Shown here is a 143-nucleotide sequence from Domibacillus mangrovi, a member of the family "Ribosomal protein L10 leader". The source organism's lineage runs through Bacteria, Bacillati, Bacillota, Bacillaceae and Domibacillus.

Nucleotides: 143
Base pairs, nucleotide, nucleotide: 028055029054030053031052032051033050034042035041036040103128104127105126106125107124108123109122110121111120112119
Number, partner (000 for none) and nucleotide at each position: 001000u002000a003000u004000a005000u006000a007000u008000g009000u010000a011000c012000a013000u014000u015000u016000g017000u018000a019000c020000c021000g022000u023000a024000g025000a026000c027000a028055g029054c030053a031052g032051g033050g034042g035041c036040a037000u038000a039000u040036u041035g042034c043000u044000u045000a046000a047000a048000c049000a050033u051032c052031c053030u054029g055028c056000c057000g058000a059000g060000g061000a062000c063000a064000u065000g066000c067000g068000a069000a070000a071000u072000a073000g074000a075000u076000a077000g078000u079000g080000u081000g082000a083000c084000a085000u086000u087000c088000u089000g090000u091000c092000c093000g094000c095000u096000u097000u098000u099000c100000g101000u102000g103128c104127c105126u106125c107124c108123a109122u110121g111120u112119c113000u114000u115000c116000c117000g118000g119112g120111a121110c122109a123108u124107g125106g126105a127104g128103g129000u130000u131000u132000u133000a134000c135000g136000u137000u138000u139000c140000c141000c142000g143000u
It is annotated as a cis-regulatory leader.